[Rfam]
RNA sequence: GGCUGGUUCGAAGAUAAUGUUAUCUCAAUUAAUUGUUCACAGUCAGUUACAGAUCAAAGUCCUUGUGCUACUCUUUCCCCGCUUCUCACUGCUGCACUUGACUAGUCUAGA
Numbered sequence: 001g002g003c004u005g006g007u008u009c010g011a012a013g014a015u016a017a018u019g020u021u022a023u024c025u026c027a028a029u030u031a032a033u034u035g036u037u038c039a040c041a042g043u044c045a046g047u048u049a050c051a052g053a054u055c056a057a058a059g060u061c062c063u064u065g066u067g068c069u070a071c072u073c074u075u076u077c078c079c080c081g082c083u084u085c086u087c088a089c090u091g092c093u094g095c096a097c098u099u100g101a102c103u104a105g106u107c108u109a110g111a
Base pairs, nucleotide, nucleotide: 001107002106003105004104005103006102007101008100010099011098015094016090018088019087042072045069046068

Source information
Y RNA: a 111-nucleotide RNA sequence from Chlorocebus sabaeus. Rfam 15.1 lists 26,986 matches to the family in 650 species. Lineage of the source: Eukaryota > Opisthokonta > Craniata > Cercopithecoidea > Chlorocebus. Rfam classes the family as a non-coding RNA gene. The base pairs follow the family's consensus structure, which is taken from published work.